[Rfam]
RNA: L31-Actinobacteria ribosomal protein leader
Organism: Nocardia sp. BMG111209
RNA sequence: UCGGCUCCGGUUCACGUCCUCGAUCGUGUCGAGGGCGACCCGGCGGCC
Numbered sequence: 001u002c003g004g005c006u007c008c009g010g011u012u013c014a015c016g017u018c019c020u021c022g023a024u025c026g027u028g029u030c031g032a033g034g035g036c037g038a039c040c041c042g043g044c045g046g047c048c
Base pairs, nucleotide, nucleotide: 003048004047005046007043008042009041010040015037016036017035018034019033020032021031022030023029